[Rfam]
RNA: Bacterial large subunit ribosomal RNA, nucleotides 902 to 1368
Organism: Microbacterium lemovicicum
RNA sequence: CUCUCCGAAAUGCAUUUAGGUGCAGCGUUGCGUGUUUCUUGCCGGAGGUAGAGCUACUGGAUGGCCGAUGGGCCCUAAAAGGUUACUGACGUCAGCCAAACUCCGAAUGCCGGUAAGUGAGAGCGCAGCAGUGAGACUGUGGGGGAUAAGCUUCAUAGUCGAGAGGGAAACAACCCAGACCACCAACUAAGGUCCCUAAGCGCGUGCUAAGUGGGAAAGGAUGUGGAGUUGCUUAGACAACCAGGAGGUUGGCUUAGAAGCAGCCACCCUUGAAAGAGUGCGUAAUAGCUCACUGGUCAAGUGAUUCCGCGCCGACAAUGUAACGGGGCUCAAGCACGUCACCGAAGUUGUGGCAUUGACAUUUUUGGUAGGCCUUCGUGGUCCAGCCGUGUUGAUGGGUAGGAGAGCGUCGUGUGGCCAGCGAAGCGGCGGUGUGAACCAGCCGUGGAGGCUACACGAGUGAGAAU
Numbered sequence: 001c002u003c004u005c006c007g008a009a010a011u012g013c014a015u016u017u018a019g020g021u022g023c024a025g026c027g028u029u030g031c032g033u034g035u036u037u038c039u040u041g042c043c044g045g046a047g048g049u050a051g052a053g054c055u056a057c058u059g060g061a062u063g064g065c066c067g068a069u070g071g072g073c074c075c076u077a078a079a080a081g082g083u084u085a086c087u088g089a090c091g092u093c094a095g096c097c098a099a100a101c102u103c104c105g106a107a108u109g110c111c112g113g114u115a116a117g118u119g120a121g122a123g124c125g126c127a128g129c130a131g132u133g134a135g136a137c138u139g140u141g142g143g144g145g146a147u148a149a150g151c152u153u154c155a156u157a158g159u160c161g162a163g164a165g166g167g168a169a170a171c172a173a174c175c176c177a178g179a180c181c182a183c184c185a186a187c188u189a190a191g192g193u194c195c196c197u198a199a200g201c202g203c204g205u206g207c208u209a210a211g212u213g214g215g216a217a218a219g220g221a222u223g224u225g226g227a228g229u230u231g232c233u234u235a236g237a238c239a240a241c242c243a244g245g246a247g248g249u250u251g252g253c254u255u256a257g258a259a260g261c262a263g264c265c266a267c268c269c270u271u272g273a274a275a276g277a278g279u280g281c282g283u284a285a286u287a288g289c290u291c292a293c294u295g296g297u298c299a300a301g302u303g304a305u306u307c308c309g310c311g312c313c314g315a316c317a318a319u320g321u322a323a324c325g326g327g328g329c330u331c332a333a334g335c336a337c338g339u340c341a342c343c344g345a346a347g348u349u350g351u352g353g354c355a356u357u358g359a360c361a362u363u364u365u366u367g368g369u370a371g372g373c374c375u376u377c378g379u380g381g382u383c384c385a386g387c388c389g390u391g392u393u394g395a396u397g398g399g400u401a402g403g404a405g406a407g408c409g410u411c412g413u414g415u416g417g418c419c420a421g422c423g424a425a426g427c428g429g430c431g432g433u434g435u436g437a438a439c440c441a442g443c444c445g446u447g448g449a450g451g452c453u454a455c456a457c458g459a460g461u462g463a464g465a466a467u
Stems, first nucleotide, its partner, number of pairs: 001407006011024005026131001027129007036122001038117008051104001052102002058098003062094004070086001071084004135160010165176003180353004185349003191343003200340001202339006219313002223310010240297005246270003251265003271275001276291001280289002354397008408462001410459010426446005431440003